This 285-nucleotide sequence from Sciurus vulgaris belongs to the Rfam family "Mason-Pfizer monkey virus packaging signal". The family's RNA type in Rfam is cis-regulatory element. From the family's description: This family represents a group of sequences that are related to the Mason-Pfizer monkey virus (MPMV) packaging signal. The packaging signal is located in the 5' UTR and is required for specific RNA encapsidation.
RNA sequence: UGGCGCCCAGCGGUGAGGCGUGGAUACGGGGGAAUUCAUGAGGGAAGAGGCAUCUAAUUGUUCCACCGAAGGAAAAAAAAAAGUGAAAGUCAGUUCCACAAAGAUCGCCGCAAGAGCCUGCCGUGCUGCUCUUAAAGGUACAGUAGCGCCUAACUAUGGGACAAGAAUUAAGUAAGCAUAAAGUUUUUGUUAAGCAAUUAAAAGAAGCUUUAAAGACACGGGGAGUAAAGGUUAAGAGUAAUGAUCUUUUUAAGUUUUUUGACCUUAUUAUGGAUACCUGUCCGU
Numbered sequence: 001u002g003g004c005g006c007c008c009a010g011c012g013g014u015g016a017g018g019c020g021u022g023g024a025u026a027c028g029g030g031g032g033a034a035u036u037c038a039u040g041a042g043g044g045a046a047g048a049g050g051c052a053u054c055u056a057a058u059u060g061u062u063c064c065a066c067c068g069a070a071g072g073a074a075a076a077a078a079a080a081a082a083g084u085g086a087a088a089g090u091c092a093g094u095u096c097c098a099c100a101a102a103g104a105u106c107g108c109c110g111c112a113a114g115a116g117c118c119u120g121c122c123g124u125g126c127u128g129c130u131c132u133u134a135a136a137g138g139u140a141c142a143g144u145a146g147c148g149c150c151u152a153a154c155u156a157u158g159g160g161a162c163a164a165g166a167a168u169u170a171a172g173u174a175a176g177c178a179u180a181a182a183g184u185u186u187u188u189g190u191u192a193a194g195c196a197a198u199u200a201a202a203a204g205a206a207g208c209u210u211u212a213a214a215g216a217c218a219c220g221g222g223g224a225g226u227a228a229a230g231g232u233u234a235a236g237a238g239u240a241a242u243g244a245u246c247u248u249u250u251u252a253a254g255u256u257u258u259u260u261g262a263c264c265u266u267a268u269u270a271u272g273g274a275u276a277c278c279u280g281u282c283c284g285u
Stems, first nucleotide, its partner, number of pairs: 006032003013027003037050001039048001090138002094135002104130001106128001109125003144164001146162001149160004169212003172208002219261008229247006270285006